The family of this 65-nucleotide sequence from Flavobacterium sp. AG291 is "S15-Flavobacteria ribosomal protein leader". It scores 74 bits against the family's covariance model. On this family, see Eckert and Weinberg, BMC Microbiol 2020: "Discovery of 20 novel ribosomal leader candidates in bacteria and archaea".
RNA sequence: UACCUUUGCAGCCGUAUAGGAUAAACUUAUACAUACAUAAUAAUCAUUUAAAUAAUAUUAGCAUG
Numbered sequence: 001u002a003c004c005u006u007u008g009c010a011g012c013c014g015u016a017u018a019g020g021a022u023a024a025a026c027u028u029a030u031a032c033a034u035a036c037a038u039a040a041u042a043a044u045c046a047u048u049u050a051a052a053u054a055a056u057a058u059u060a061g062c063a064u065g
Stems, first nucleotide, its partner, number of pairs: 014032006
Rfam classes the family as a cis-regulatory leader.